[Rfam]
RNA: FMN riboswitch aptamer (RFN element)
Organism: Kordiimonas lacus
RNA sequence: GCUUGUACUCAGGGCAGGGUGAAAUUCCCGACCGGCGGUAUGGCCUGGAUUUCCCGGCCGAGCCCGCGAGCGCCCACCAGACCUUUGGUGGGGUCAGCAGAUCCGGUGAGACGCCGGAGCCGACGGUAUAGUCCGGAUGAGAGAGUGGAAGC
Numbered sequence: 001g002c003u004u005g006u007a008c009u010c011a012g013g014g015c016a017g018g019g020u021g022a023a024a025u026u027c028c029c030g031a032c033c034g035g036c037g038g039u040a041u042g043g044c045c046u047g048g049a050u051u052u053c054c055c056g057g058c059c060g061a062g063c064c065c066g067c068g069a070g071c072g073c074c075c076a077c078c079a080g081a082c083c084u085u086u087g088g089u090g091g092g093g094u095c096a097g098c099a100g101a102u103c104c105g106g107u108g109a110g111a112c113g114c115c116g117g118a119g120c121c122g123a124c125g126g127u128a129u130a131g132u133c134c135g136g137a138u139g140a141g142a143g144a145g146u147g148g149a150a151g152c
Stems, first nucleotide, its partner, number of pairs: 003150002006147005017029003031132002033122002035067004062120002070098002102118005124135003